[Rfam]
RNA: Purine riboswitch aptamer
Organism: Cohnella xylanilytica
RNA sequence: AACGCACAGACAACUUCCAUUCGUAUAUCCCCGGCGAUAAGGGCCGGGAGUUUCUACCGGGAACCGCAAAUUCCCGACUACGACGGAAGCGGGAUCCUUG
Numbered sequence: 001a002a003c004g005c006a007c008a009g010a011c012a013a014c015u016u017c018c019a020u021u022c023g024u025a026u027a028u029c030c031c032c033g034g035c036g037a038u039a040a041g042g043g044c045c046g047g048g049a050g051u052u053u054c055u056a057c058c059g060g061g062a063a064c065c066g067c068a069a070a071u072u073c074c075c076g077a078c079u080a081c082g083a084c085g086g087a088a089g090c091g092g093g094a095u096c097c098u099u100g
Base pairs, nucleotide, nucleotide: 018086021083022082023081024080025079030048031047032046033045034044035043058076059075060074061073062072063071